[Rfam]
RNA: Selenocysteine insertion sequence 1
RNA sequence: GUUAUUCUUAAUGAUGUGAAUGGAGUAAAGCUUUUGGGACUUCCAUUUGCUGAUGUGGUAUAAC
Number, nucleotide and partner (000 for none) at each position: 001g064002u063003u062004a061005u060006u000007c000008u000009u000010a000011a000012u000013g000014a000015u000016g050017u049018g048019a047020a046021u045022g044023g043024a042025g041026u000027a000028a000029a000030g000031c038032u037033u000034u000035u000036g000037g032038g031039a000040c000041u025042u024043c023044c022045a021046u020047u019048u018049g017050c016051u000052g000053a000054u000055g000056u000057g000058g000059u000060a005061u004062a003063a002064c001